[Rfam]
RNA sequence: UUUUGGUUUGCGUGAAGGAUAGUAGUGAAAAUCCUGUUAUUGUGUAAAAGAAAAAUCCAGUGAUUGCUUCGUACCUCGCGAUGACAGAUUGUAGCGAAUAGCCUGACCCGAA
Numbered sequence: 001u002u003u004u005g006g007u008u009u010g011c012g013u014g015a016a017g018g019a020u021a022g023u024a025g026u027g028a029a030a031a032u033c034c035u036g037u038u039a040u041u042g043u044g045u046a047a048a049a050g051a052a053a054a055a056u057c058c059a060g061u062g063a064u065u066g067c068u069u070c071g072u073a074c075c076u077c078g079c080g081a082u083g084a085c086a087g088a089u090u091g092u093a094g095c096g097a098a099u100a101g102c103c104u105g106a107c108c109c110g111a112a
Stems, first nucleotide, its partner, number of pairs: 016104003020100002025095002030090004036085008